[Rfam]
RNA: Bacillaceae-1 RNA
RNA sequence: GGGGGAUGAGGCAGACUAAAUGUGCGACGUCCUGUCGCAACGUCUGCACUAGCACGUCCUGUGCG
Numbered sequence: 001g002g003g004g005g006a007u008g009a010g011g012c013a014g015a016c017u018a019a020a021u022g023u024g025c026g027a028c029g030u031c032c033u034g035u036c037g038c039a040a041c042g043u044c045u046g047c048a049c050u051a052g053c054a055c056g057u058c059c060u061g062u063g064c065g
Stems, first nucleotide, its partner, number of pairs: 011047006024038005052064004